[Rfam]
RNA sequence: UCUGAGUUGGGAGGGUCCCUCUCCAAAUGUGUCUUGGGGUGGGGGAUCAAGACACAUUUGGAGAGGGAACCUCCCAACUCGGC
Numbered sequence: 001u002c003u004g005a006g007u008u009g010g011g012a013g014g015g016u017c018c019c020u021c022u023c024c025a026a027a028u029g030u031g032u033c034u035u036g037g038g039g040u041g042g043g044g045g046a047u048c049a050a051g052a053c054a055c056a057u058u059u060g061g062a063g064a065g066g067g068a069a070c071c072u073c074c075c076a077a078c079u080c081g082g083c
Stems, first nucleotide, its partner, number of pairs: 002082013016068022
This 83-nucleotide sequence from Homo sapiens belongs to the Rfam family "mir-642 microRNA precursor family". The sequence is in the family's curated seed alignment. Taxonomically the source falls in Homo (Eukaryota, Sarcopterygii, Eutheria, Hominidae). For this family Rfam cites "Computational identification of novel microRNA homologs in the chimpanzee genome" (Baev et al., Comput Biol Chem, 2009).